[Rfam]
RNA sequence: UAUAAUAAGACAGGGAGCUUGUAAGCAGGCUGAGAGGAAGUAAUCGAACUUCGACCUAUAACCUGAUUUGGAUAAUGCCAACGUAGGGAAGAAAUGAAAUUUUUUG
Numbered sequence: 001u002a003u004a005a006u007a008a009g010a011c012a013g014g015g016a017g018c019u020u021g022u023a024a025g026c027a028g029g030c031u032g033a034g035a036g037g038a039a040g041u042a043a044u045c046g047a048a049c050u051u052c053g054a055c056c057u058a059u060a061a062c063c064u065g066a067u068u069u070g071g072a073u074a075a076u077g078c079c080a081a082c083g084u085a086g087g088g089a090a091g092a093a094a095u096g097a098a099a100u101u102u103u104u105u106g
Stems, first nucleotide, its partner, number of pairs: 006094001012057003017030005037052005062087004068081004